[Rfam]
RNA sequence: GAAUGUUUCAGCUAUUUUAAAAUUUGUCUGUCAGGCUUUCUGGCUGUUGUCUGAAGCCCCU
Numbered sequence: 001g002a003a004u005g006u007u008u009c010a011g012c013u014a015u016u017u018u019a020a021a022a023u024u025u026g027u028c029u030g031u032c033a034g035g036c037u038u039u040c041u042g043g044c045u046g047u048u049g050u051c052u053g054a055a056g057c058c059c060c061u
Stems, first nucleotide, its partner, number of pairs: 034058005040053001042051003
A member of the RNA family "U7 small nuclear RNA" from Marmota monax, 61 nucleotides long.
For this family Rfam cites "3' end processing of mouse histone pre-mRNA: evidence for additional base-pairing between U7 snRNA and pre-mRNA" (Spycher et al., Nucleic Acids Res, 1994).
A search with the family's covariance model found it, with a score of 41 bits.
The base pairs follow the family's consensus structure, which was predicted with PFOLD.